RNA sequence: CAGGUGACUGCCGAAAAACCUAAUAAAAGAGUAGGUG
Numbered sequence: 001c002a003g004g005u006g007a008c009u010g011c012c013g014a015a016a017a018a019c020c021u022a023a024u025a026a027a028a029g030a031g032u033a034g035g036u037g
Base pairs, nucleotide, nucleotide: 002021003020004019005018010036011035012034
A member of the RNA family "DUF805b RNA" from Aquirufa antheringensis, 37 nucleotides long.
NCBI's taxonomy places the organism under Bacteria, Pseudomonadati, Bacteroidota, Flectobacillaceae, Aquirufa.